Shown here is a 152-nucleotide sequence from Roseovarius sp. A46, a member of the family "Ruegeria cis2 sRNA". The match comes from Rfam's covariance-model search (78 bits). Pairs were carried over by alignment from the consensus structure, which was predicted with RNAfold. It is annotated as a small RNA.
[Rfam]
RNA sequence: GACGUCUUGUGCGGGAAGUAGUUGAUGAACACGUAGCCGCGCGCCUGGUCGAUGUUGUGAAACAGCGGGUUCCAGGCAAACAUCUUGUACAUGGUGGGUGGCAGCAUGUUGACCACGAACAUCUUGCCAGAGGCGAUCAUGUUGGCGCGCUG
Numbered sequence: 001g002a003c004g005u006c007u008u009g010u011g012c013g014g015g016a017a018g019u020a021g022u023u024g025a026u027g028a029a030c031a032c033g034u035a036g037c038c039g040c041g042c043g044c045c046u047g048g049u050c051g052a053u054g055u056u057g058u059g060a061a062a063c064a065g066c067g068g069g070u071u072c073c074a075g076g077c078a079a080a081c082a083u084c085u086u087g088u089a090c091a092u093g094g095u096g097g098g099u100g101g102c103a104g105c106a107u108g109u110u111g112a113c114c115a116c117g118a119a120c121a122u123c124u125u126g127c128c129a130g131a132g133g134c135g136a137u138c139a140u141g142u143u144g145g146c147g148c149g150c151u152g
Base pairs, nucleotide, nucleotide: 002034003033004032005031007029008028012024013023014022036056038054039053040051041050063152064151065150066149067148069081070080071079086145089142090141091140092139093138099130101128102126103125104124106122107121109118110117111116